[Rfam]
RNA sequence: AUGGUGCGCAAUAGACUCACCUCCAUGUGGUGCACCCUGGACAACGUAUCUAAGUACGGCAAAAAUGUCUAU
Dot-bracket structure: (.(((((...........(((.......)))))))).)......(((((....)))))..............
Numbered sequence: 001a002u003g004g005u006g007c008g009c010a011a012u013a014g015a016c017u018c019a020c021c022u023c024c025a026u027g028u029g030g031u032g033c034a035c036c037c038u039g040g041a042c043a044a045c046g047u048a049u050c051u052a053a054g055u056a057c058g059g060c061a062a063a064a065a066u067g068u069c070u071a072u
Stems, first nucleotide, its partner, number of pairs: 001038001003036005019031003045058005

Notes:
The record is a 72-nucleotide RNA sequence from Rodentolepis nana, which matches "HDV ribozyme from F. prausnitzii" in Rfam. The source organism's lineage runs through Eukaryota, Eumetazoa, Lophotrochozoa, Eucestoda and Rodentolepis. The match comes from Rfam's covariance-model search (46 bits). On this family, see Webb et al., Science 2009: "Widespread occurrence of self-cleaving ribozymes".